Rfam assigns this 131-nucleotide RNA sequence from Acetonema longum to the family "c-di-AMP riboswitch aptamer (ydaO/yuaA leader)". The pairing is the family consensus, mapped onto this sequence.
RNA sequence: AUCUAAAAUGUGCCGAAUUUCCACAGGAAUACGGAGGAACCAAUUUAUUGGGGUGAAUCCUGCGCCCGGCGCAGGUAGGGAUCCCUGUCCCGAACCCGUCAGCUAACUCCGGAGGCAUGGGGACUGUUGAA
Dot-bracket structure: ..........((((....((.......))..(((((....((......))(((.....((((.........))))..((((......))))...))).........)))))..))))..............